[Rfam]
RNA: 6S-Flavo RNA
Organism: Neptunitalea chrysea
RNA sequence: ACUCAACGCUAAUUUCUUUAGAAAGGGUGAGUUUAGGUUGUAAAAGCAAGCUGUUUUUAAACAGAUCCUUGAGCAAUCUGGUAGCCCUAAACCUGUUUAUUAUGAGUUU
Numbered sequence: 001a002c003u004c005a006a007c008g009c010u011a012a013u014u015u016c017u018u019u020a021g022a023a024a025g026g027g028u029g030a031g032u033u034u035a036g037g038u039u040g041u042a043a044a045a046g047c048a049a050g051c052u053g054u055u056u057u058u059a060a061a062c063a064g065a066u067c068c069u070u071g072a073g074c075a076a077u078c079u080g081g082u083a084g085c086c087c088u089a090a091a092c093c094u095g096u097u098u099a100u101u102a103u104g105a106g107u108u109u
Stems, first nucleotide, its partner, number of pairs: 024088005035079005044070003051064004